[Rfam]
RNA sequence: GCCGAGCUCAGUCACGGGAGCUUGUAACCUGAGUGGGGGCUGUAAAGUGGUGGAACAUUGGCUCUGGUAGGUGGGUGGGUUCUCGGUUGGCCAACUGCUGGUCCGCCCUGUUCAAGAUGGGAGCUGAUCCAUGUGGCCUAGGCGAAGGCCCAAGCCCUGUGGGUCCUAAAGUGGAGGGUAUUGCAUGAGGCUGGCUUCACAGAGCAAUGAAAACUUCCCUCUCUUGGCAGUGGAAGGAUAGCGGGCCGGUGUCACCCAGACCCACAAGCACCCAGCUGCCUGAGGCACCAACUGGACCACCACUUAA
Numbered sequence: 001g002c003c004g005a006g007c008u009c010a011g012u013c014a015c016g017g018g019a020g021c022u023u024g025u026a027a028c029c030u031g032a033g034u035g036g037g038g039g040c041u042g043u044a045a046a047g048u049g050g051u052g053g054a055a056c057a058u059u060g061g062c063u064c065u066g067g068u069a070g071g072u073g074g075g076u077g078g079g080u081u082c083u084c085g086g087u088u089g090g091c092c093a094a095c096u097g098c099u100g101g102u103c104c105g106c107c108c109u110g111u112u113c114a115a116g117a118u119g120g121g122a123g124c125u126g127a128u129c130c131a132u133g134u135g136g137c138c139u140a141g142g143c144g145a146a147g148g149c150c151c152a153a154g155c156c157c158u159g160u161g162g163g164u165c166c167u168a169a170a171g172u173g174g175a176g177g178g179u180a181u182u183g184c185a186u187g188a189g190g191c192u193g194g195c196u197u198c199a200c201a202g203a204g205c206a207a208u209g210a211a212a213a214c215u216u217c218c219c220u221c222u223c224u225u226g227g228c229a230g231u232g233g234a235a236g237g238a239u240a241g242c243g244g245g246c247c248g249g250u251g252u253c254a255c256c257c258a259g260a261c262c263c264a265c266a267a268g269c270a271c272c273c274a275g276c277u278g279c280c281u282g283a284g285g286c287a288c289c290a291a292c293u294g295g296a297c298c299a300c301c302a303c304u305u306a307a
Base pairs, nucleotide, nucleotide: 001040002039003038004023005022006021007020008019009018028037029036030035043307045305046304047303048302049301050300051299052298053297056294057293058291059290060289063282066279068278069277070276072274073273074272075271076270077269078263079262081260082259083258085256086255088254089253090252092251093250098249099248100247101246102245103244104243105242106241107237108236111234112233113232114231116228118226119225120224121223122222123221126165127164128163129162130161131160132159133158135156136155137154139152141150142149143148166171173218174217175216176215177214182211184209185208186207191202192201193200
A member of the RNA family "Plant signal recognition particle RNA" from Carnegiea gigantea, 307 nucleotides long. Lineage of the source: Eukaryota > Viridiplantae > Euphyllophyta > Cactineae > Carnegiea. Clan: SRP clan. The base pairs follow the family's consensus structure, which is taken from published work. The family's RNA type in Rfam is non-coding RNA gene. The family has 63 seed sequences and 4,988 matches in Rfam 15.1.